[Rfam]
Nucleotides: 142
Base pairs, nucleotide, nucleotide: 001063002062003061005060006059027056028055029054032051033050034049035048036047081136082135083134084133087129088128089127090126093123094122095121096120097119098118099117100115101114102113103112105110
Number, partner (000 for none) and nucleotide at each position: 001063c002062u003061g004000g005060c006059c007000u008000c009000c010000c011000a012000u013000u014000u015000a016000a017000a018000u019000u020000g021000a022000u023000u024000u025000g026000a027056g028055c029054u030000c031000a032051c033050c034049u035048g036047u037000g038000c039000u040000c041000a042000g043000u044000a045000u046000a047036a048035c049034a050033g051032g052000g053000g054029a055028g056027u057000c058000u059006g060005g061003c062002a063001g064000g065000a066000c067000a068000c069000a070000c071000a072000g073000c074000a075000a076000c077000c078000u079000c080000c081136c082135u083134c084133u085000c086000a087129g088128u089127u090126u091000a092000g093123g094122a095121g096120g097119g098118c099117c100115g101114u102113c103112c104000c105110g106000a107000g108000u109000g110105u111000a112103g113102g114101g115100c116000u117099g118098g119097c120096u121095c122094u123093u124000a125000a126090a127089g128088g129087c130000a131000c132000a133084a134083g135082a136081g137000a138000a139000c140000a141000a142000u
The family of this 142-nucleotide sequence from Myotis davidii is "Small Cajal body specific RNA 11". For this family Rfam cites "Cajal body-specific small nuclear RNAs: a novel class of 2'-O-methylation and pseudouridylation guide RNAs" (Darzacq et al., EMBO J, 2002). The family's consensus secondary structure was predicted with RNAalifold. Its family is annotated with nucleolus, Cajal body and RNA processing in the Gene Ontology. scaRNAs are a specific class of small nuclear RNAs which localise to the Cajal bodies and guide the modification of RNA polymerase II transcribed spliceosomal RNAs U1, U2, U4, U5 and U12. ACA57 belongs to the H/ACA box class of guide RNAs as it has the predicted hairpin-hinge-hairpin-tail structure, conserved H/ACA-box motifs and is found associated with GAR1. ACA57 is predicted to guide the pseudouridylation of the U5 spliceosomal RNA at position U43. A search with the family's covariance model found it, with a score of 101 bits.